The record is a 75-nucleotide RNA from Capsicum baccatum, which matches "Plastid-ycf2 5UTR RNA" in Rfam.
The organism belongs to Capsicum, within Eukaryota.
It is annotated as a cis-regulatory element.
From the family's description: Plastid ycf2 is a non-coding RNA (ncRNA) recognised in plastids. It was found in the prime untranslated region (5UTR) of ycf2 genes, it presents a tRNA-like motif which suggests it can be involved in mRNA maturation, particularly involved in defining the precise 5' end of the transcript.
Pairs were carried over by alignment from the consensus structure, which was predicted with LocARNA.
[Rfam]
RNA sequence: GUGCAUUCAGUAGGAGUUGAACCUACGAAUUCGGCAAUUAUGAGUUGGGUGCUUUAACUAUUCAGCCAUGGAUUC
Numbered sequence: 001g002u003g004c005a006u007u008c009a010g011u012a013g014g015a016g017u018u019g020a021a022c023c024u025a026c027g028a029a030u031u032c033g034g035c036a037a038u039u040a041u042g043a044g045u046u047g048g049g050u051g052c053u054u055u056a057a058c059u060a061u062u063c064a065g066c067c068a069u070g071g072a073u074u075c
Stems, first nucleotide, its partner, number of pairs: 003075001005073004010026005040069003044066008